[Rfam]
A member of the RNA family "Burkholderia RNA 7 (anti-hemB)" from Solimonas marina, 93 nucleotides long. A search with the family's covariance model found it, with a score of 55 bits. From the family's description: This RNA motif was identified by computational search in b-proteobacteria Burkholderia. Co-purified with Hfq, expression confirmed by Northern blot. The family's RNA type in Rfam is small RNA. Rfam links the family to the GO terms protein binding and bacterial biofilm matrix. The literature on the family includes a 2013 paper in Genomics by Ramos et al., "Experimental identification of small non-coding regulatory RNAs in the opportunistic human pathogen Burkholderia cenocepacia J2315".
RNA sequence: UCCCCGCCUCCACUCCCUGGGCGGGUCCGGCAUCCCCCAAUGGCCGGAAAGCGUGGCCCGGUGACUCUCCCCCAAGUCACCGGGUUUUUUUUU
Numbered sequence: 001u002c003c004c005c006g007c008c009u010c011c012a013c014u015c016c017c018u019g020g021g022c023g024g025g026u027c028c029g030g031c032a033u034c035c036c037c038c039a040a041u042g043g044c045c046g047g048a049a050a051g052c053g054u055g056g057c058c059c060g061g062u063g064a065c066u067c068u069c070c071c072c073c074a075a076g077u078c079a080c081c082g083g084g085u086u087u088u089u090u091u092u093u
Base pairs, nucleotide, nucleotide: 003025004024005023006022007021008020027047028046029045030044031042032041033040056085057084058083059082060081061080062079063078064077065076066075